[Rfam]
RNA sequence: CUUCACCGACCCCAGCCACAACGGCCGCUCGGCAUCCCGCCCCUGCCCAUACGUCGCCAGCAACGCCUCCGCCUC
Numbered sequence: 001c002u003u004c005a006c007c008g009a010c011c012c013c014a015g016c017c018a019c020a021a022c023g024g025c026c027g028c029u030c031g032g033c034a035u036c037c038c039g040c041c042c043c044u045g046c047c048c049a050u051a052c053g054u055c056g057c058c059a060g061c062a063a064c065g066c067c068u069c070c071g072c073c074u075c
Base pairs, nucleotide, nucleotide: 015025016024017023032070038065039064043060044059045058047056049054
Shown here is a 75-nucleotide sequence from Streptomyces sp. VN1, a member of the family "ASpks TB sRNA". It scores 72 bits against the family's covariance model. By type it is an antisense RNA. Pairs were carried over by alignment from the consensus structure, which is taken from published work. A reference for the family is Arnvig and Young (2009), "Identification of small RNAs in Mycobacterium tuberculosis", Mol Microbiol. The source organism's lineage runs through Bacteria, Actinomycetota, Actinomycetes, Streptomycetaceae and Streptomyces.